[Rfam]
Source information
Small nucleolar RNA SNORA1: a 131-nucleotide sequence from Buceros rhinoceros. The family's consensus secondary structure was predicted with PFOLD. The match comes from Rfam's covariance-model search (98 bits). About the family: ACA1 is a member of the H/ACA class of snoRNA that guide the sites of modification of uridines to pseudouridines. By type it is an H/ACA-box small nucleolar RNA. The family has 29 seed sequences and 1,282 matches in Rfam 15.1. Its family is annotated with RNA processing and nucleolus in the Gene Ontology.

RNA sequence: UGCCUCGUUAUUCAGCAAAUCGACACAGCUCACUGUGUGUCUGAAUUGAAGACGUGGCUAGAGGAGAAACAGGUUGUGCUUUCCUCACUGUACUGAUAAUUGCAGUGGUGACAAUGAGACCUGUAACAGGU
Numbered sequence: 001u002g003c004c005u006c007g008u009u010a011u012u013c014a015g016c017a018a019a020u021c022g023a024c025a026c027a028g029c030u031c032a033c034u035g036u037g038u039g040u041c042u043g044a045a046u047u048g049a050a051g052a053c054g055u056g057g058c059u060a061g062a063g064g065a066g067a068a069a070c071a072g073g074u075u076g077u078g079c080u081u082u083c084c085u086c087a088c089u090g091u092a093c094u095g096a097u098a099a100u101u102g103c104a105g106u107g108g109u110g111a112c113a114a115u116g117a118g119a120c121c122u123g124u125a126a127c128a129g130g131u
Base pairs, nucleotide, nucleotide: 002058003057004056006054007053008052022041023040024039025038026037027036069124070123071122072121073120083110085108086107087106088105
Source information
The organism belongs to Buceros rhinoceros, within Eukaryota.